RNA: Plant signal recognition particle RNA
RNA sequence: GUCGAGCUCAGUAACGAGUGCUUGUAACCCAUGUGGGGAUGAUAAGUUGGUAGAACACUGGCUCGGCCAACGGGUCGGAUUUGAUGUGGCACUGUUCUGGGCUGCCCAAUCCAAGCUGAGAGUGGUCCGUGUGUGUUGAGCGAAAGCUUGGCGCAGACGGUUCCUAAAGUGGAGGGCAAUGCGUGAGGCUGGUUUCACAGAGCAGCGAUCACCUCCCUCUCUCAGUAGUGGAUGGAUAACGGCUCAACGCCAUUCAUAUCCAUCAUCGCCUGCUGGCUCGUACCCAGCUGAACCACCAACUUU
Numbered sequence: 001g002u003c004g005a006g007c008u009c010a011g012u013a014a015c016g017a018g019u020g021c022u023u024g025u026a027a028c029c030c031a032u033g034u035g036g037g038g039a040u041g042a043u044a045a046g047u048u049g050g051u052a053g054a055a056c057a058c059u060g061g062c063u064c065g066g067c068c069a070a071c072g073g074g075u076c077g078g079a080u081u082u083g084a085u086g087u088g089g090c091a092c093u094g095u096u097c098u099g100g101g102c103u104g105c106c107c108a109a110u111c112c113a114a115g116c117u118g119a120g121a122g123u124g125g126u127c128c129g130u131g132u133g134u135g136u137u138g139a140g141c142g143a144a145a146g147c148u149u150g151g152c153g154c155a156g157a158c159g160g161u162u163c164c165u166a167a168a169g170u171g172g173a174g175g176g177c178a179a180u181g182c183g184u185g186a187g188g189c190u191g192g193u194u195u196c197a198c199a200g201a202g203c204a205g206c207g208a209u210c211a212c213c214u215c216c217c218u219c220u221c222u223c224a225g226u227a228g229u230g231g232a233u234g235g236a237u238a239a240c241g242g243c244u245c246a247a248c249g250c251c252a253u254u255c256a257u258a259u260c261c262a263u264c265a266u267c268g269c270c271u272g273c274u275g276g277c278u279c280g281u282a283c284c285c286a287g288c289u290g291a292a293c294c295a296c297c298a299a300c301u302u303u
Stems, first nucleotide, its partner, number of pairs: 001040003004023004009018001028037003044302008053293001056290002058287003061283001064280003067276003071272005077261004082256003086253004098246007106235002109233005115226008124163002127160004132155010164169001171216005182207003189200003